Source information
This 107-nucleotide RNA sequence from Prunus armeniaca belongs to the Rfam family "MIR6274 microRNA precursor family". Rfam 15.1 lists 342 matches to the family in 8 species. A search with the family's covariance model found it, with a score of 85 bits. NCBI's taxonomy places the organism under Eukaryota, Euphyllophyta, Magnoliopsida, fabids, Prunus. The family's consensus secondary structure was predicted with RNAalifold.

[Rfam]
RNA sequence: GAAUAACAUUGUUUUGCUAUCCCCAACCAAUAACACAAUGACACAUGAAAAAACUAUCUUACGUGUUAUUAUGUUAUUAGUCGGGAAUAGCAAAAAGUGCUAUACUC
Number, nucleotide and partner (000 for none) at each position: 001g000002a106003a000004u104005a103006a000007c000008a000009u000010u000011g000012u095013u094014u093015u092016g091017c090018u089019a088020u087021c000022c085023c084024c083025a000026a081027c080028c000029a078030a077031u076032a075033a074034c073035a072036c000037a070038a069039u068040g067041a066042c065043a064044c063045a000046u061047g060048a059049a000050a057051a000052a000053a000054c000055u000056a000057u050058c000059u048060u047061a046062c000063g044064u043065g042066u041067u040068a039069u038070u037071a000072u035073g034074u033075u032076a031077u030078u029079a000080g027081u026082c000083g024084g023085g022086a000087a020088u019089a018090g017091c016092a015093a014094a013095a012096a000097g000098u000099g000100c000101u000102a000103u005104a004105c000106u002107c000